RNA: Plastid-ndhJ 3UTR RNA
Organism: Solanum commersonii
RNA sequence: UCAUGAACUUUGUAUCAAGCAUUAUUACUUAGACGGGUUCUAGAAAGGCAUAUAGGAA
Dot-bracket structure: ..................((..(.((.....)).).))....................